[Rfam]
The family of this 132-nucleotide RNA sequence from Sphaeramia orbicularis is "Small nucleolar RNA SNORA13". Pairs were carried over by alignment from the consensus structure, which was predicted with CMfinder. It is annotated as an H/ACA-box small nucleolar RNA. Rfam's curators write: ACA13 is a member of the H/ACA class of snoRNA that guide the sites of modification of uridines to pseudouridines. A search with the family's covariance model found it, with a score of 57 bits.

RNA sequence: UGCCUUUAUGUGUUGCCCUUUCAUUGUUUCCAUCAUGAAACGGGUGUCAGCAAAGGCAGACAAUAAUUCUUGUUGUUGUCUUGGGAAGAGUCAUCAGUGAUGCUUCUGACAGGCGGAACUGCAAGGACAUUU
Numbered sequence: 001u002g003c004c005u006u007u008a009u010g011u012g013u014u015g016c017c018c019u020u021u022c023a024u025u026g027u028u029u030c031c032a033u034c035a036u037g038a039a040a041c042g043g044g045u046g047u048c049a050g051c052a053a054a055g056g057c058a059g060a061c062a063a064u065a066a067u068u069c070u071u072g073u074u075g076u077u078g079u080c081u082u083g084g085g086a087a088g089a090g091u092c093a094u095c096a097g098u099g100a101u102g103c104u105u106c107u108g109a110c111a112g113g114c115g116g117a118a119c120u121g122c123a124a125g126g127a128c129a130u131u132u
Stems, first nucleotide, its partner, number of pairs: 002057006011049002014046004019040006069125004075119003079115001085110001087107002091102001